Notes
A member of the RNA family "Small nucleolar RNA SNORA72" from Lynx pardinus, 131 nucleotides long.
RNA sequence: CCACAACUAUUCUCGCUGUUCUGAUUUUGUAAUAAUCAGGGCAGGCUAAACAUUCUCUGUGUAAGACCGUGCGUGUGUCCUCAGACCUAGUUCUUUCUCUAGCUCUGGUGUUGUCAAUGCUGGUGAUAAAC
Numbered sequence: 001c002c003a004c005a006a007c008u009a010u011u012c013u014c015g016c017u018g019u020u021c022u023g024a025u026u027u028u029g030u031a032a033u034a035a036u037c038a039g040g041g042c043a044g045g046c047u048a049a050a051c052a053u054u055c056u057c058u059g060u061g062u063a064a065g066a067c068c069g070u071g072c073g074u075g076u077g078u079c080c081u082c083a084g085a086c087c088u089a090g091u092u093c094u095u096u097c098u099c100u101a102g103c104u105c106u107g108g109u110g111u112u113g114u115c116a117a118u119g120c121u122g123g124u125g126a127u128a129a130a131c
Stems, first nucleotide, its partner, number of pairs: 016044011066124004071120002081108005087102004

The source organism's lineage runs through Eukaryota, Craniata, Teleostomi, Dipnotetrapodomorpha and Lynx.
Rfam 15.1 lists 1,541 matches to the family in 547 species.
By type it is an H/ACA-box small nucleolar RNA.
From the family's description: U72 is a member of the H/ACA class of snoRNAs. The snoRNA gene is located in intron 4 of the ribosomal L30 protein gene in human, mouse and chicken.